[Rfam]
RNA sequence: ACUCAUAAUUGAAUCGUGCUUCGUAUAAUCCCGGGAAUCGGCCUGGGAGUCUCUAGGGAUCACCGCAAAUGAUCCGGCUACGGAAGACGAUAGAGCAACC
Numbered sequence: 001a002c003u004c005a006u007a008a009u010u011g012a013a014u015c016g017u018g019c020u021u022c023g024u025a026u027a028a029u030c031c032c033g034g035g036a037a038u039c040g041g042c043c044u045g046g047g048a049g050u051c052u053c054u055a056g057g058g059a060u061c062a063c064c065g066c067a068a069a070u071g072a073u074c075c076g077g078c079u080a081c082g083g084a085a086g087a088c089g090a091u092a093g094a095g096c097a098a099c100c
Stems, first nucleotide, its partner, number of pairs: 020084006029048007057075006